[Rfam]
RNA sequence: UCUCAUGAUGUGACUCUCUAGAGGGAUGCGCUUUCUGUUGGCUAUAAGAGUAGGAACCGCAUCCCUUUAGAGCGUUACGCUUUGAGA
Numbered sequence: 001u002c003u004c005a006u007g008a009u010g011u012g013a014c015u016c017u018c019u020a021g022a023g024g025g026a027u028g029c030g031c032u033u034u035c036u037g038u039u040g041g042c043u044a045u046a047a048g049a050g051u052a053g054g055a056a057c058c059g060c061a062u063c064c065c066u067u068u069a070g071a072g073c074g075u076u077a078c079g080c081u082u083u084g085a086g087a
Stems, first nucleotide, its partner, number of pairs: 001087005007081001009079006016072003020068011032056004038052001

Record summary:
The family of this 87-nucleotide RNA sequence from Rhinopithecus roxellana is "mir-515 microRNA precursor family". The literature on the family includes a 2005 paper in Nat Genet by Bentwich et al., "Identification of hundreds of conserved and nonconserved human microRNAs". The family has 181 seed sequences and 1,056 matches in Rfam 15.1.